[Rfam]
RNA sequence: CACAUGCUCCUUAGAUCCAUCUUUGUGAGUACCUCUGUGCUGAGUUCUGCUGGGUAACCUCAAUUCCUAGCAGUUCCAGUCAGAGAUACUCAGCAACUUUUUUGGUUGUACAGUCAAAGAUGCUUGAGUCAUUGGCAUGUGAGAGCAAUAUAACUGCAUGUUAGCUUUCUGUUCUGGUAGAAGUGGCUGUAAUUCUACAGGCCACUGAUCACUAUCAGGACUCGGCUGGUGUGCAGACAUG
Numbered sequence: 001c002a003c004a005u006g007c008u009c010c011u012u013a014g015a016u017c018c019a020u021c022u023u024u025g026u027g028a029g030u031a032c033c034u035c036u037g038u039g040c041u042g043a044g045u046u047c048u049g050c051u052g053g054g055u056a057a058c059c060u061c062a063a064u065u066c067c068u069a070g071c072a073g074u075u076c077c078a079g080u081c082a083g084a085g086a087u088a089c090u091c092a093g094c095a096a097c098u099u100u101u102u103u104g105g106u107u108g109u110a111c112a113g114u115c116a117a118a119g120a121u122g123c124u125u126g127a128g129u130c131a132u133u134g135g136c137a138u139g140u141g142a143g144a145g146c147a148a149u150a151u152a153a154c155u156g157c158a159u160g161u162u163a164g165c166u167u168u169c170u171g172u173u174c175u176g177g178u179a180g181a182a183g184u185g186g187c188u189g190u191a192a193u194u195c196u197a198c199a200g201g202c203c204a205c206u207g208a209u210c211a212c213u214a215u216c217a218g219g220a221c222u223c224g225g226c227u228g229g230u231g232u233g234c235a236g237a238c239a240u241g
Stems, first nucleotide, its partner, number of pairs: 002140007010128005018122008026092006034084004039080004044076001047073004053067001056065002093109006154236005161229001163227004173219008184211003189202002